[Rfam]
RNA sequence: GUGCUGGAUGAGUGUUAUAUCGCUGUGACUCAUGAUUGUGUAUCGAAGGAGAGCGAUGUCAGAUACAUAAACAGUAC
Numbered sequence: 001g002u003g004c005u006g007g008a009u010g011a012g013u014g015u016u017a018u019a020u021c022g023c024u025g026u027g028a029c030u031c032a033u034g035a036u037u038g039u040g041u042a043u044c045g046a047a048g049g050a051g052a053g054c055g056a057u058g059u060c061a062g063a064u065a066c067a068u069a070a071a072c073a074g075u076a077c
Stems, first nucleotide, its partner, number of pairs: 001077006009032004037069008
Dot-bracket structure: ((((((..((((................))))....((((((((.................))))))))..))))))